Shown here is a 122-nucleotide RNA sequence from Thioclava indica, a member of the family "TPP riboswitch aptamer (THI element)". Rfam links the family to the GO term thiamine pyrophosphate binding. The base pairs follow the family's consensus structure, which is taken from published work.

[Rfam]
RNA sequence: CCCCUACGUCAGGGGAGUCCCGCCAUGGGGACUGAGAGGCUGACAGGGGACUCUCCCCGGUGAAGCGACCCUUUGAACCUGACCCAGUUGAUGCUGGCGUAGGAAGACCGAAGGGUUGAUUC
Numbered sequence: 001c002c003c004c005u006a007c008g009u010c011a012g013g014g015g016a017g018u019c020c021c022g023c024c025a026u027g028g029g030g031a032c033u034g035a036g037a038g039g040c041u042g043a044c045a046g047g048g049g050a051c052u053c054u055c056c057c058c059g060g061u062g063a064a065g066c067g068a069c070c071c072u073u074u075g076a077a078c079c080u081g082a083c084c085c086a087g088u089u090g091a092u093g094c095u096g097g098c099g100u101a102g103g104a105a106g107a108c109c110g111a112a113g114g115g116u117u118g119a120u121u122c
Stems, first nucleotide, its partner, number of pairs: 008108003011072004017032005039066003078103004084097004